Rfam assigns this 87-nucleotide sequence from Oceanisphaera arctica to the family "c-di-GMP-I riboswitch aptamer".
The match comes from Rfam's covariance-model search (77 bits).
Taxonomically the source falls in Oceanisphaera (Bacteria, Pseudomonadati, Pseudomonadota, Aeromonadales).

[Rfam]
RNA sequence: UUGAAUAAACGGCAAACUCGUCGAAAGACAAGGACGCAAAGCUUCCAGCCUAAGGGUCGAACGACCUAGGGUAGUGGGGCCACCUGA
Numbered sequence: 001u002u003g004a005a006u007a008a009a010c011g012g013c014a015a016a017c018u019c020g021u022c023g024a025a026a027g028a029c030a031a032g033g034a035c036g037c038a039a040a041g042c043u044u045c046c047a048g049c050c051u052a053a054g055g056g057u058c059g060a061a062c063g064a065c066c067u068a069g070g071g072u073a074g075u076g077g078g079g080c081c082a083c084c085u086g087a
Stems, first nucleotide, its partner, number of pairs: 012037002017032002020029003041080003045077003048072003055066004